[Rfam]
RNA sequence: UUCGGUCUUCGGUAGUGGCUUCCGGAAAUCUUCCGUGGGCUUCGAUCGAUGGCCGCC
Numbered sequence: 001u002u003c004g005g006u007c008u009u010c011g012g013u014a015g016u017g018g019c020u021u022c023c024g025g026a027a028a029u030c031u032u033c034c035g036u037g038g039g040c041u042u043c044g045a046u047c048g049a050u051g052g053c054c055g056c057c
Stems, first nucleotide, its partner, number of pairs: 003055005009049005017041005023035005

A member of the RNA family "Actino-pnp RNA" from Ruaniaceae bacterium KH17, 57 nucleotides long.
The family's RNA type in Rfam is cis-regulatory element.
The organism belongs to Ruaniaceae, within Bacteria.
The family's consensus secondary structure is taken from published work.